Rfam assigns this 144-nucleotide sequence from Salvator merianae to the family "Small nucleolar RNA SNORD94". The base pairs follow the family's consensus structure, which was predicted with RNAalifold. The family has 21 seed sequences and 802 matches in Rfam 15.1. The source organism's lineage runs through Eukaryota, Teleostomi, Laterata, Teiidae and Salvator. The match comes from Rfam's covariance-model search (115 bits). On this family, see Galardi et al., Mol Cell Biol 2002: "Purified box C/D snoRNPs are able to reproduce site-specific 2'-O-methylation of target RNA in vitro".
[Rfam]
RNA sequence: GCGGCAGUGAUGAUUGGCGCAGGGGUACGGACCUCAGCUAGAUCAUGGGAGCUGAUUGUGAGCUUUUGAGUUCCAGUUUAGCUGACAUGUGGUCGGCUUUCUGGAGACUGGCUCACAAGAGAACUUCGCCUAAUACUGAGCUGC
Numbered sequence: 001g002c003g004g005c006a007g008u009g010a011u012g013a014u015u016g017g018c019g020c021a022g023g024g025g026u027a028c029g030g031a032c033c034u035c036a037g038c039u040a041g042a043u044c045a046u047g048g049g050a051g052c053u054g055a056u057u058g059u060g061a062g063c064u065u066u067u068g069a070g071u072u073c074c075a076g077u078u079u080a081g082c083u084g085a086c087a088u089g090u091g092g093u094c095g096g097c098u099u100u101c102u103g104g105a106g107a108c109u110g111g112c113u114c115a116c117a118a119g120a121g122a123a124c125u126u127c128g129c130c131u132a133a134u135a136c137u138g139a140g141c142u143g144c
Base pairs, nucleotide, nucleotide: 001144002143003142004141005140